[Rfam]
RNA sequence: UUGACGGUGAGGUCCCACGUGCUGCUCGGGUCGGUGAGGCUGUCGUCGCCGAAGUGGUCGCCGUCGGCCAGCACGCCGAGCACGGUCCGGUCGCCGUACUCGCCCGUGCCGACCUGGUUCAGCCUGCCGUGCACGAUCAGGAACGCCUCGUCCGACGGGUCGCCGGACGCGACCACCACGUCGCCCGGUUCGUAGUCGCGCCGCUCGAACCGGCCCGCCAGGGCGGCCAGCACAUCCGGUUCGUCGAACCCGCGCAGCAACGGCAGCUCGCCCAGCUCCGCCGGGAUGACGGCCGGCCCGGAACCGGUGUCGGUGAACGUCACCCGGCCGUCGCCGACCUCGUAGCUGAGCCGCCGGUUGACCCGGAACGUGCCGCCCUCGGCCUCGACCCAGGGCAGCACCUUGAGCAGCCACCGCGAGGAGAUCGCCUGCAUCUGCGGCACGGACUUGGUCGUGGUGGCGAGGUUGCGGGCGGCGGCCGGGCCGAGGCUCAGCCUGGUCUCG
Numbered sequence: 001u002u003g004a005c006g007g008u009g010a011g012g013u014c015c016c017a018c019g020u021g022c023u024g025c026u027c028g029g030g031u032c033g034g035u036g037a038g039g040c041u042g043u044c045g046u047c048g049c050c051g052a053a054g055u056g057g058u059c060g061c062c063g064u065c066g067g068c069c070a071g072c073a074c075g076c077c078g079a080g081c082a083c084g085g086u087c088c089g090g091u092c093g094c095c096g097u098a099c100u101c102g103c104c105c106g107u108g109c110c111g112a113c114c115u116g117g118u119u120c121a122g123c124c125u126g127c128c129g130u131g132c133a134c135g136a137u138c139a140g141g142a143a144c145g146c147c148u149c150g151u152c153c154g155a156c157g158g159g160u161c162g163c164c165g166g167a168c169g170c171g172a173c174c175a176c177c178a179c180g181u182c183g184c185c186c187g188g189u190u191c192g193u194a195g196u197c198g199c200g201c202c203g204c205u206c207g208a209a210c211c212g213g214c215c216c217g218c219c220a221g222g223g224c225g226g227c228c229a230g231c232a233c234a235u236c237c238g239g240u241u242c243g244u245c246g247a248a249c250c251c252g253c254g255c256a257g258c259a260a261c262g263g264c265a266g267c268u269c270g271c272c273c274a275g276c277u278c279c280g281c282c283g284g285g286a287u288g289a290c291g292g293c294c295g296g297c298c299c300g301g302a303a304c305c306g307g308u309g310u311c312g313g314u315g316a317a318c319g320u321c322a323c324c325c326g327g328c329c330g331u332c333g334c335c336g337a338c339c340u341c342g343u344a345g346c347u348g349a350g351c352c353g354c355c356g357g358u359u360g361a362c363c364c365g366g367a368a369c370g371u372g373c374c375g376c377c378c379u380c381g382g383c384c385u386c387g388a389c390c391c392a393g394g395g396c397a398g399c400a401c402c403u404u405g406a407g408c409a410g411c412c413a414c415c416g417c418g419a420g421g422a423g424a425u426c427g428c429c430u431g432c433a434u435c436u437g438c439g440g441c442a443c444g445g446a447c448u449u450g451g452u453c454g455u456g457g458u459g460g461c462g463a464g465g466u467u468g469c470g471g472g473c474g475g476c477g478g479c480c481g482g483g484c485c486g487a488g489g490c491u492c493a494g495c496c497u498g499g500u501c502u503c504g
Stems, first nucleotide, its partner, number of pairs: 006390003011385002014382002021328002024325001026322001028320001030318001031316002035312003039308003045304002049301003054233002058229001060227005065111004075103001077102004082097005118221002122218002126214002129210002131206001134203002140197001143196002149192002154189001156187005162177001165174002236296002241289005249283001252281003256277003261270002329342002353377001355375003361371002391431004397425001399423001401421001403418001407415001437476002440473001443470002446467001447465003451461002480504003484499003488495001
Dot-bracket structure: .....(((..((.((.....((.(.(.(.(((..(((.(((...((..(((..((..(.(((((((((......(.((((.(((((......))))).)))))....))))......((..((..((.(((..((....(..((....((...(.(((((.(..((......))..).....))))).).))..)))....))..)..))..))..)).)).))))).)..))..((...(((((...(..(((.(((..((......))....))).))).).))))).....))..))).)).))).)))..)).).).)..).))((..........))..........(.(((...((.......)).))).)...)).))..)))((((..(.(.(.(...(.......)..)..).).)..)))).....((.(..((.((((.((.......)).))).).))..).))...(((.(((.(......).)))..)))
The record is a 504-nucleotide RNA sequence, which matches "Saccharopolyspora sRNA 350" in Rfam. Pairs were carried over by alignment from the consensus structure, which was predicted with RNAfold. A reference for the family is Liu et al. (2013), "Prediction and characterization of small non-coding RNAs related to secondary metabolites in Saccharopolyspora erythraea", PLoS One. It is annotated as an antisense RNA. Gene Ontology term of the family: regulation of secondary metabolite biosynthetic process. It scores 154 bits against the family's covariance model.